[Rfam]
mir-236 microRNA precursor family: a 71-nucleotide RNA from Plectus sambesii. Taxonomically the source falls in Plectus (Eukaryota, Ecdysozoa, Nematoda, Plectina). The base pairs follow the family's consensus structure, which was predicted with RNAalifold. Its Rfam clan is "mir-8 microRNA precursor clan". A search with the family's covariance model found it, with a score of 56 bits. Gene Ontology terms of the family: RISC complex and miRNA-mediated post-transcriptional gene silencing.
RNA sequence: GCCAACCGUCUUACCUGGGCAAUAUUAGAAAGAUAUUUCAAUCCCUAAUACUGUCAGGUAAUGACGAUGAC
Numbered sequence: 001g002c003c004a005a006c007c008g009u010c011u012u013a014c015c016u017g018g019g020c021a022a023u024a025u026u027a028g029a030a031a032g033a034u035a036u037u038u039c040a041a042u043c044c045c046u047a048a049u050a051c052u053g054u055c056a057g058g059u060a061a062u063g064a065c066g067a068u069g070a071c
Base pairs, nucleotide, nucleotide: 001071003069005068007066008065009064010063011061012060013059014058015057016056017055020053021052023050024049025048026047027046028045
Dot-bracket structure: (.(.(.(((((((((((..((.((((((................)))))).)).))))))).)))).)).)